RNA sequence: UGGAGGUGAUGAAAUAGAGAUUGGUGCCUGUGUGAAUGUUCUGAGUGGUGUAAUACUGGUAAAUAUAACGAUCAUUGUAUUUUUUAAGUUAAAAACACUUGGUAAUGUUUCCUUAAUAGUUAUUGGGUGGGUAGAGGGAGGGAACAGGUGUGCGUGUGGAUGAAUGUGGCAUCUAGGCUGGUGAAAAGGGGGCUCUGAAGAUUUCAGUAUCUCUGCUGACAUUGGAGUGCAUCUGAAGCCAGUCGCAUUGAAUUUUAAAGGCUUGUUGUGAUCUGGCUGAUGAUUAGAGCCUUGAAAAUGCUCACCUUGCCAGCCUUGGCACCUUUUAGUCUCUAACAGGUACAUUAUGAUGGUGUUCCUGUAAUCUGAUCCAA
Numbered sequence: 001u002g003g004a005g006g007u008g009a010u011g012a013a014a015u016a017g018a019g020a021u022u023g024g025u026g027c028c029u030g031u032g033u034g035a036a037u038g039u040u041c042u043g044a045g046u047g048g049u050g051u052a053a054u055a056c057u058g059g060u061a062a063a064u065a066u067a068a069c070g071a072u073c074a075u076u077g078u079a080u081u082u083u084u085u086a087a088g089u090u091a092a093a094a095a096c097a098c099u100u101g102g103u104a105a106u107g108u109u110u111c112c113u114u115a116a117u118a119g120u121u122a123u124u125g126g127g128u129g130g131g132u133a134g135a136g137g138g139a140g141g142g143a144a145c146a147g148g149u150g151u152g153c154g155u156g157u158g159g160a161u162g163a164a165u166g167u168g169g170c171a172u173c174u175a176g177g178c179u180g181g182u183g184a185a186a187a188g189g190g191g192g193c194u195c196u197g198a199a200g201a202u203u204u205c206a207g208u209a210u211c212u213c214u215g216c217u218g219a220c221a222u223u224g225g226a227g228u229g230c231a232u233c234u235g236a237a238g239c240c241a242g243u244c245g246c247a248u249u250g251a252a253u254u255u256u257a258a259a260g261g262c263u264u265g266u267u268g269u270g271a272u273c274u275g276g277c278u279g280a281u282g283a284u285u286a287g288a289g290c291c292u293u294g295a296a297a298a299u300g301c302u303c304a305c306c307u308u309g310c311c312a313g314c315c316u317u318g319g320c321a322c323c324u325u326u327u328a329g330u331c332u333c334u335a336a337c338a339g340g341u342a343c344a345u346u347a348u349g350a351u352g353g354u355g356u357u358c359c360u361g362u363a364a365u366c367u368g369a370u371c372c373a374a
Stems, first nucleotide, its partner, number of pairs: 001373004242272006250264002253261003